[Rfam]
RNA sequence: AACAUUCGAGGCCGACUAAGUUCGCCACGUCCUGUGGCGACGUCGGCACUAGCACGUCCUGUGCG
Dot-bracket structure: ..........((((((.......(((((.....)))))...))))))....((((.....)))).